[Rfam]
RNA: Selenocysteine transfer RNA
Organism: Euglena gracilis
RNA sequence: GCCCGGAUGACCUCCUCUGGUGAGGGGUGCAGGCUUCAAACCUGUAGUGGUCGCAAGGCCAAGCUGUUCAAUUCAGCCUUCUGGGCGCCA
Number, nucleotide and partner (000 for none) at each position: 001g086002c085003c084004c083005g082006g081007a080008u000009g078010a000011c000012c027013u026014c025015c024016u023017c022018u000019g000020g000021u000022g017023a016024g015025g014026g013027g012028u046029g045030c044031a043032g042033g041034c000035u000036u000037c000038a000039a000040a000041c033042c032043u031044g030045u029046a028047g000048u061049g060050g059051u058052c057053g000054c000055a000056a000057g052058g051059c050060c049061a048062a000063g077064c076065u075066g074067u000068u000069c000070a000071a000072u000073u000074c066075a065076g064077c063078c009079u000080u007081c006082u005083g004084g003085g002086c001087g000088c000089c000090a000